Rfam assigns this 267-nucleotide sequence from Octodon degus to the family "Mason-Pfizer monkey virus packaging signal". The match comes from Rfam's covariance-model search (111 bits). Pairs were carried over by alignment from the consensus structure, which was predicted with PFOLD.

[Rfam]
RNA sequence: UGGCAUCCACUGUGGAUCGAGAACGGGAAAUUUCGUGAGGGAUGCCGUUCAAGGAGCCGGCACAGAAGUUAGAAUACAGGAUCGGUCAAUGCGGGAACCUGCUGCAUUUUCCAGGCCUCAGUAAGUGAACGGUGAUUAUGGGUCAGGAAAUAAGCCAGCAUGAAAUGUUUGUUGAAAGUUUAAGUAAGGCUUUAAAGACAUGAGGAGUAAAGGUUAAAAUUAAGGAUUUGUGUCAAUAUUUUGAAUAUAUUAAACAAGUUUUCCCAU
Numbered sequence: 001u002g003g004c005a006u007c008c009a010c011u012g013u014g015g016a017u018c019g020a021g022a023a024c025g026g027g028a029a030a031u032u033u034c035g036u037g038a039g040g041g042a043u044g045c046c047g048u049u050c051a052a053g054g055a056g057c058c059g060g061c062a063c064a065g066a067a068g069u070u071a072g073a074a075u076a077c078a079g080g081a082u083c084g085g086u087c088a089a090u091g092c093g094g095g096a097a098c099c100u101g102c103u104g105c106a107u108u109u110u111c112c113a114g115g116c117c118u119c120a121g122u123a124a125g126u127g128a129a130c131g132g133u134g135a136u137u138a139u140g141g142g143u144c145a146g147g148a149a150a151u152a153a154g155c156c157a158g159c160a161u162g163a164a165a166u167g168u169u170u171g172u173u174g175a176a177a178g179u180u181u182a183a184g185u186a187a188g189g190c191u192u193u194a195a196a197g198a199c200a201u202g203a204g205g206a207g208u209a210a211a212g213g214u215u216a217a218a219a220u221u222a223a224g225g226a227u228u229u230g231u232g233u234c235a236a237u238a239u240u241u242u243g244a245a246u247a248u249a250u251u252a253a254a255c256a257a258g259u260u261u262u263c264c265c266a267u
Base pairs, nucleotide, nucleotide: 006028007027008026012024013023034044035043036042079119080118082115083114090106091105092104093103094102126145127144128143130142133140134139151194152193153192154190155189156188201243202242203241204240205239207237208236211229212228213227214226215225252267257262